[Rfam]
Shown here is a 137-nucleotide RNA sequence from Cottoperca gobio, a member of the family "Small nucleolar RNA SNORA5". It scores 73 bits against the family's covariance model. Rfam classes the family as an H/ACA-box small nucleolar RNA. The organism belongs to Cottoperca, within Eukaryota. ACA5 is a member of the H/ACA class of snoRNA that guide the sites of modification of uridines to pseudouridines.
RNA sequence: UGCAGCCUUGUCAAAUUCAGUGCUUCCUCCUCUGUGGAAUCCACUGGCCAAAAUGGCUGCCACAGUGAAGGUGUAGUUCAUGGGCCCCGUGGUGCUUUACCAUGUCCACUGGGGAUAAAUAUGUACUACACACAAAC
Dot-bracket structure: .((((............(((((.((((........))))..)))))..........))))............((((((......(((((....................)))))........).)))))........